[Rfam]
RNA sequence: AGAGUGUUAUGAUGUUGGAAGUUUACUUCCGAGUCUAGCUCGUGGCAUCUCCCUAGUUUGACUAGGGAG
Numbered sequence: 001a002g003a004g005u006g007u008u009a010u011g012a013u014g015u016u017g018g019a020a021g022u023u024u025a026c027u028u029c030c031g032a033g034u035c036u037a038g039c040u041c042g043u044g045g046c047a048u049c050u051c052c053c054u055a056g057u058u059u060g061a062c063u064a065g066g067g068a069g
Stems, first nucleotide, its partner, number of pairs: 002041004011035003017030005049069009
Dot-bracket structure: .((((.....(((...(((((....)))))..)))..)))).......(((((((((...)))))))))

Shown here is a 69-nucleotide RNA from Vagococcus fessus, a member of the family "L17 ribosomal protein downstream element". By type it is a cis-regulatory element. The base pairs follow the family's consensus structure, which is taken from published work.